[Rfam]
Nucleotides: 324
Base pairs, nucleotide, nucleotide: 002324003323004322005321006320007319008318009317011316012315015246016245017244018243019242020241023090024089025088026087027086028085045060046059047058048057049056050055094310095309096308098307099306100305101304111123112122113121114120124139125138126137127136128135129134142217143216145214147212148211149210150208151207152206153205155197156196157195248294249293250292
Number, partner (000 for none) and nucleotide at each position: 001000g002324c003323a004322u005321u006320a007319a008318g009317u010000a011316a012315a013000u014000a015246a016245a017244u018243u019242g020241c021000u022000u023090u024089c025088g026087c027086g028085g029000c030000a031000c032000c033000c034000a035000a036000a037000a038000a039000u040000g041000u042000u043000a044000g045060a046059a047058a048057a049056a050055a051000u052000u053000c054000g055050u056049u057048u058047u059046u060045u061000c062000a063000g064000a065000c066000a067000a068000u069000a070000a071000a072000a073000a074000a075000a076000a077000a078000a079000a080000a081000a082000a083000a084000a085028c086027c087026g088025u089024g090023g091000g092000g093000a094310a095309a096308g097000u098307c099306c100305u101304c102000c103000u104000g105000u106000a107000a108000u109000a110000a111123g112122g113121u114120a115000g116000a117000a118000a119000g120114u121113a122112c123111c124139u125138c126137u127136u128135u129134u130000g131000a132000c133000u134129a135128a136127g137126g138125g139124g140000g141000c142217g143216u144000c145214u146000u147212a148211a149210a150208u151207g152206u153205c154000a155197g156196c157195c158000g159000a160000a161000g162000a163000u164000u165000u166000u167000u168000a169000u170000u171000u172000u173000u174000u175000u176000u177000u178000a179000u180000u181000a182000a183000a184000a185000a186000a187000u188000a189000a190000a191000a192000u193000g194000a195157g196156g197155c198000a199000u200000u201000u202000a203000a204000u205153g206152g207151c208150a209000u210149u211148u212147u213000c214145g215000a216143a217142c218000u219000c220000u221000c222000u223000u224000u225000u226000c227000a228000a229000u230000a231000g232000c233000a234000a235000a236000g237000u238000c239000a240000u241020g242019c243018a244017a245016u246015u247000a248294g249293a250292a251000a252000u253000a254000g255000a256000a257000c258000u259000c260000a261000u262000a263000a264000a265000a266000g267000c268000u269000u270000a271000a272000a273000a274000a275000a276000c277000u278000u279000u280000u281000u282000u283000g284000a285000u286000u287000c288000u289000a290000u291000c292250u293249u294248c295000c296000a297000a298000c299000a300000c301000a302000a303000g304101g305100a306099g307098g308096c309095u310094u311000a312000c313000u314000u315012u316011u317009a318008c319007u320006u321005a322004a323003u324002g